[Rfam]
Nucleotides: 094
Base pairs, nucleotide, nucleotide: 001043002042003041004040005039010031011030012029013028014027015026016025069094070093071092072091073090074089075088076087077086
Number, partner (000 for none) and nucleotide at each position: 001043u002042g003041g004040u005039c006000g007000g008000g009000a010031g011030g012029u013028g014027c015026c016025c017000u018000u019000u020000g021000g022000g023000a024000c025016g026015g027014g028013c029012a030011c031010c032000a033000c034000g035000a036000a037000u038000u039005g040004g041003c042002c043001g044000a045000a046000a047000c048000u049000g050000a051000u052000a053000u054000c055000c056000g057000u058000u059000c060000u061000c062000a063000g064000a065000u066000g067000a068000g069094a070093g071092a072091a073090u074089g075088c076087c077086g078000a079000g080000a081000c082000c083000c084000a085000c086077c087076g088075g089074c090073g091072u092071u093070c094069u

The record is a 94-nucleotide sequence from Thalassobium sp. R2A62, which matches "Rhodo-rpoB RNA" in Rfam. The family's consensus secondary structure is taken from published work. Rfam classes the family as a cis-regulatory element. A search with the family's covariance model found it, with a score of 62 bits.